[Rfam]
Shown here is a 138-nucleotide RNA from Platysternon megacephalum, a member of the family "Small nucleolar RNA SNORA42/SNORA80 family". The match comes from Rfam's covariance-model search (77 bits). Rfam 15.1 lists 1,535 matches to the family in 183 species. Lineage of the source: Eukaryota > Euteleostomi > Tetrapoda > Testudines > Platysternon. The literature on the family includes a 2006 paper in RNA by Schattner et al., "A computational screen for mammalian pseudouridylation guide H/ACA RNAs".
RNA sequence: GCAUGGUCCUGGAUUUAUGGAGGGGUCCCUCCAUGGCAUCUCCAUAGUGUACCCCAUGCAAGAGCAAUCAGCCCCCCCUGAACCAUGGCCGCCCCCCCAUGUCUCUGGGUCCCGGUCCCUGAAAUGGGGGGCACACUG
Numbered sequence: 001g002c003a004u005g006g007u008c009c010u011g012g013a014u015u016u017a018u019g020g021a022g023g024g025g026u027c028c029c030u031c032c033a034u035g036g037c038a039u040c041u042c043c044a045u046a047g048u049g050u051a052c053c054c055c056a057u058g059c060a061a062g063a064g065c066a067a068u069c070a071g072c073c074c075c076c077c078c079u080g081a082a083c084c085a086u087g088g089c090c091g092c093c094c095c096c097c098c099a100u101g102u103c104u105c106u107g108g109g110u111c112c113c114g115g116u117c118c119c120u121g122a123a124a125u126g127g128g129g130g131g132c133a134c135a136c137u138g
Stems, first nucleotide, its partner, number of pairs: 001059004005054002015047006022041003025037002072131006084121002090115001091112001094109003